[Rfam]
RNA sequence: GUUGAAGCACCUUCUACAAAUGGAUAAGACUUCGGUCUUAGUGUAGUGUAAGUGUAGUGUAUAUGAGUCGUUGAAGGAGCAAUACGCAAUAUCUUGUUCUAUCAAGAGAUUUGGUAUUGCUCCAU
Numbered sequence: 001g002u003u004g005a006a007g008c009a010c011c012u013u014c015u016a017c018a019a020a021u022g023g024a025u026a027a028g029a030c031u032u033c034g035g036u037c038u039u040a041g042u043g044u045a046g047u048g049u050a051a052g053u054g055u056a057g058u059g060u061a062u063a064u065g066a067g068u069c070g071u072u073g074a075a076g077g078a079g080c081a082a083u084a085c086g087c088a089a090u091a092u093c094u095u096g097u098u099c100u101a102u103c104a105a106g107a108g109a110u111u112u113g114g115u116a117u118u119g120c121u122c123c124a125u
Stems, first nucleotide, its partner, number of pairs: 010023002013020001076123010088111002092107004

This 125-nucleotide RNA from Acorus gramineus belongs to the Rfam family "Plastid-psbA-1 3UTR RNA". It is annotated as a cis-regulatory element. The literature on the family includes a 2023 paper in Plant Commun by Richter et al., "Retrograde signaling in plants: A critical review focusing on the GUN pathway and beyond". The family is grouped with related families in Rfam's "Plastid-psbA 3UTR RNA clan".